RNA sequence: UUCUCCCGCUGGGGGUAGUCCUUCUUAUAGGGCUUGAGAGUAUACCCUUGGAACCUGAUGCGGUUAAUACCGCCGUAGGGAAAGCGGGCUGCUGGACGG
Numbered sequence: 001u002u003c004u005c006c007c008g009c010u011g012g013g014g015g016u017a018g019u020c021c022u023u024c025u026u027a028u029a030g031g032g033c034u035u036g037a038g039a040g041u042a043u044a045c046c047c048u049u050g051g052a053a054c055c056u057g058a059u060g061c062g063g064u065u066a067a068u069a070c071c072g073c074c075g076u077a078g079g080g081a082a083a084g085c086g087g088g089c090u091g092c093u094g095g096a097c098g099g
Stems, first nucleotide, its partner, number of pairs: 006087005011048004016042001017034005054079004060073004